[Rfam]
RNA sequence: UGCGUAGCGCAUGUUUGAGAACAAUAUCGCUGAACUUCACGCCCUUGAGGCGGGCCGUUCGGAUGUAUUGUGCGGUCAUAACUUCGGUCAUUGAGGCCCGCGUCAUCCGCGCGAUAUAGCCCAUCCCAUAAAGCGAAAUCGUCAGAACCGGCAGAAAGAAGUUCUCAAAAUUAGCGCUUUC
Number, nucleotide and partner (000 for none) at each position: 001u000002g000003c000004g000005u000006a139007g000008c000009g000010c135011a000012u133013g000014u131015u130016u128017g127018a000019g126020a000021a124022c000023a000024a000025u000026a000027u000028c000029g122030c000031u000032g000033a000034a000035c000036u000037u000038c113039a000040c111041g110042c109043c000044c000045u000046u105047g104048a103049g000050g101051c100052g099053g098054g097055c075056c074057g073058u072059u000060c070061g069062g068063a000064u000065g000066u000067a000068u062069u061070g060071u000072g058073c057074g056075g055076u000077c000078a000079u000080a000081a000082c096083u095084u094085c093086g092087g000088u000089c000090a000091u000092u086093g085094a084095g083096g082097c054098c053099c052100g051101c050102g000103u048104c047105a046106u000107c000108c000109g042110c041111g040112c000113g038114a000115u000116a000117u000118a000119g000120c000121c000122c029123a000124u021125c000126c019127c017128a016129u000130a015131a014132a000133g012134c000135g010136a000137a000138a000139u006140c000141g000142u000143c000144a000145g181146a180147a179148c000149c176150g175151g000152c000153a172154g165155a000156a163157a162158g000159a000160a000161g000162u157163u156164c000165u154166c000167a000168a000169a000170a000171u000172u153173a000174g000175c150176g149177c000178u000179u147180u146181c145
The family of this 181-nucleotide RNA from Sulfitobacter sp. SK012 is "Ruegeria cis52 sRNA". Lineage of the source: Bacteria > Pseudomonadati > Alphaproteobacteria > Roseobacteraceae > Sulfitobacter.